[Rfam]
Notes
A member of the RNA family "DUF805b RNA" from Deminuibacter soli, 40 nucleotides long. The source organism's lineage runs through Bacteria, Pseudomonadati, Chitinophagia, Chitinophagales and Deminuibacter. The match comes from Rfam's covariance-model search (41 bits). Its Rfam clan is "DUF805 clan".

RNA sequence: UAGGCGUAUCCCGAAAAGCCUGAUAAAAAAAGAGUAGGGA
Numbered sequence: 001u002a003g004g005c006g007u008a009u010c011c012c013g014a015a016a017a018g019c020c021u022g023a024u025a026a027a028a029a030a031a032g033a034g035u036a037g038g039g040a
Stems, first nucleotide, its partner, number of pairs: 002021004010039003